A member of the RNA family "Small nucleolar RNA Z159/U59" from Beta vulgaris, 73 nucleotides long.
Clan: SNORD59 clan.
Pairs were carried over by alignment from the consensus structure, which was predicted with PFOLD.
The organism belongs to Beta vulgaris, within Eukaryota.
Gene Ontology terms of the family: nucleolus and RNA processing.
Rfam classes the family as a C/D-box small nucleolar RNA.
It scores 54 bits against the family's covariance model.
RNA sequence: GACUCCGAUGAUGAUGAAAAGUUUCUGAGAUCUUCUUUGCGGAAAACAUUUUGGAGACCUGAACUGAGGAGAA
Numbered sequence: 001g002a003c004u005c006c007g008a009u010g011a012u013g014a015u016g017a018a019a020a021g022u023u024u025c026u027g028a029g030a031u032c033u034u035c036u037u038u039g040c041g042g043a044a045a046a047c048a049u050u051u052u053g054g055a056g057a058c059c060u061g062a063a064c065u066g067a068g069g070a071g072a073a
Base pairs, nucleotide, nucleotide: 003071004070005069006068